Rfam assigns this 99-nucleotide sequence from Striga asiatica to the family "Small nucleolar RNA Z161/Z228". It scores 58 bits against the family's covariance model. The literature on the family includes a 2003 paper in Nucleic Acids Res by Chen et al., "The high diversity of snoRNAs in plants: identification and comparative study of 120 snoRNA genes from Oryza sativa". The family's RNA type in Rfam is C/D-box small nucleolar RNA. The organism belongs to Striga, within Eukaryota.
RNA sequence: AAACCAAAGGAUGAAUUUGGAUUGAAUUUUCUCACGACGGUCGUCUGAGGCGCACACGGCGCUAUCGUUGAUGCUAUAAUCCAAUAUAUUCUGAUGGUU
Numbered sequence: 001a002a003a004c005c006a007a008a009g010g011a012u013g014a015a016u017u018u019g020g021a022u023u024g025a026a027u028u029u030u031c032u033c034a035c036g037a038c039g040g041u042c043g044u045c046u047g048a049g050g051c052g053c054a055c056a057c058g059g060c061g062c063u064a065u066c067g068u069u070g071a072u073g074c075u076a077u078a079a080u081c082c083a084a085u086a087u088a089u090u091c092u093g094a095u096g097g098u099u
Stems, first nucleotide, its partner, number of pairs: 001099002004096001051061003